[Rfam]
RNA sequence: UACUUAUCCAGAAAGACGGAGGGAAAGGCCCGAAGAAGUCUUAGCAACCUGUAAACUCUGUUACAAGGUGCUCAUUCCUUUCUGCUAUAUGCAGAGCUGAUAAGUC
Numbered sequence: 001u002a003c004u005u006a007u008c009c010a011g012a013a014a015g016a017c018g019g020a021g022g023g024a025a026a027g028g029c030c031c032g033a034a035g036a037a038g039u040c041u042u043a044g045c046a047a048c049c050u051g052u053a054a055a056c057u058c059u060g061u062u063a064c065a066a067g068g069u070g071c072u073c074a075u076u077c078c079u080u081u082c083u084g085c086u087a088u089a090u091g092c093a094g095a096g097c098u099g100a101u102a103a104g105u106c
Base pairs, nucleotide, nucleotide: 002105003104004103005102006101007100008099013042014041015040016039017038021031022030023029025080026079027078028077043072044071045070046069048068049067050065051064052063053062081095082094083093084092085091

Shown here is a 106-nucleotide RNA from Olivibacter sp. LS-1, a member of the family "SAM riboswitch aptamer (S box leader)". It scores 78 bits against the family's covariance model. NCBI's taxonomy places the organism under Bacteria, Pseudomonadati, Sphingobacteriia, Sphingobacteriaceae, Olivibacter. About the family: The SAM riboswitch is found upstream of a number of genes which code for proteins involved in methionine or cysteine biosynthesis in Gram-positive bacteria.